Rfam assigns this 87-nucleotide sequence from Raphanus sativus to the family "Small nucleolar RNA R11/Z151". The base pairs follow the family's consensus structure, which was predicted with PFOLD. The source organism's lineage runs through Eukaryota, Embryophyta, Pentapetalae, malvids and Raphanus. Rfam 15.1 lists 802 matches to the family in 218 species. Rfam links the family to the GO terms nucleolus and RNA processing. A reference for the family is Barneche et al. (2001), "Identification of 66 box C/D snoRNAs in Arabidopsis thaliana: extensive gene duplications generated multiple isoforms predicting new ribosomal RNA 2'-O-methylation sites", J Mol Biol. It is annotated as a C/D-box small nucleolar RNA. A search with the family's covariance model found it, with a score of 79 bits.

RNA sequence: AAGCUUAUGAUGGUAAAAAAGAAAAUCUUAGCGGAUUUCAGUGAGGUUUAUUGAUAAAUGAUCUGAAUUUGUCACACACUGAAGUAU
Numbered sequence: 001a002a003g004c005u006u007a008u009g010a011u012g013g014u015a016a017a018a019a020a021g022a023a024a025a026u027c028u029u030a031g032c033g034g035a036u037u038u039c040a041g042u043g044a045g046g047u048u049u050a051u052u053g054a055u056a057a058a059u060g061a062u063c064u065g066a067a068u069u070u071g072u073c074a075c076a077c078a079c080u081g082a083a084g085u086a087u
Stems, first nucleotide, its partner, number of pairs: 001087001003085003